Shown here is a 113-nucleotide RNA sequence from Verminephrobacter eiseniae, a member of the family "Group II catalytic intron D1-D4-2". The pairing is the family consensus, mapped onto this sequence. From the family's description: Group II introns are found in rRNA, tRNA and mRNA of organelles in fungi, plants and protists, and also in mRNA in bacteria. Taxonomically the source falls in Verminephrobacter eiseniae (Bacteria, Betaproteobacteria, Comamonadaceae, Verminephrobacter).
RNA sequence: GGGCAGGCAUCCCGAAGCCGGCUUGCAGAAGCUCGCCUCACACCCCCCGGUGCUGCUGCGUUCAAGAGGCGCGGUGGUGAGCGACCGGGCGAAAGUCAUCCCUAGUGUCGCGU
Numbered sequence: 001g002g003g004c005a006g007g008c009a010u011c012c013c014g015a016a017g018c019c020g021g022c023u024u025g026c027a028g029a030a031g032c033u034c035g036c037c038u039c040a041c042a043c044c045c046c047c048c049g050g051u052g053c054u055g056c057u058g059c060g061u062u063c064a065a066g067a068g069g070c071g072c073g074g075u076g077g078u079g080a081g082c083g084a085c086c087g088g089g090c091g092a093a094a095g096u097c098a099u100c101c102c103u104a105g106u107g108u109c110g111c112g113u
Stems, first nucleotide, its partner, number of pairs: 001013003014039002017036002021032004044112001046089006052078002055075003059071004095109001097107002
Its family is annotated with Group II intron splicing in the Gene Ontology. Rfam's curators put it in the seed alignment.